[Rfam]
RNA: L31-Actinobacteria ribosomal protein leader
RNA sequence: UUGGCACCGGUUCACGUCACCCGCACUCAGCGGAGGCGACCCGGCGGCC
Number, nucleotide and partner (000 for none) at each position: 001u000002u000003g049004g048005c047006a000007c044008c043009g042010g041011u000012u000013c000014a000015c038016g037017u036018c035019a000020c000021c033022c032023g031024c000025a000026c000027u000028c000029a000030g000031c023032g022033g021034a000035g018036g017037c016038g015039a000040c000041c010042c009043g008044g007045c000046g000047g005048c004049c003